[Rfam]
RNA sequence: UCGGCAUUGGGAUCGGCAUUGCGGGUCACCACGAGGUACUCACGCAGCGCGAUGGCGUGCAGGUUCUC
Numbered sequence: 001u002c003g004g005c006a007u008u009g010g011g012a013u014c015g016g017c018a019u020u021g022c023g024g025g026u027c028a029c030c031a032c033g034a035g036g037u038a039c040u041c042a043c044g045c046a047g048c049g050c051g052a053u054g055g056c057g058u059g060c061a062g063g064u065u066c067u068c
Stems, first nucleotide, its partner, number of pairs: 005062001008059002011030001013028001015027003035056001037054002040052002043049002
RNA: ASdes TB sRNA